[Rfam]
RNA sequence: GCCUUGGUGGCUCAGUGGUAAAGCGUCUCACUCGUACAGCCUACGUAAUGAGAAGAUCGGGCGUUCGAUUCGCCCUCGAGGCA
Numbered sequence: 001g002c003c004u005u006g007g008u009g010g011c012u013c014a015g016u017g018g019u020a021a022a023g024c025g026u027c028u029c030a031c032u033c034g035u036a037c038a039g040c041c042u043a044c045g046u047a048a049u050g051a052g053a054a055g056a057u058c059g060g061g062c063g064u065u066c067g068a069u070u071c072g073c074c075c076u077c078g079a080g081g082c083a
Stems, first nucleotide, its partner, number of pairs: 001082007010024003026053005059075005

This 83-nucleotide RNA from Colletotrichum fioriniae belongs to the Rfam family "tRNA".
The base pairs follow the family's consensus structure, which is taken from published work.
The match comes from Rfam's covariance-model search (51 bits).
The source organism's lineage runs through Eukaryota, Fungi, sordariomyceta, Colletotrichum and Colletotrichum fioriniae.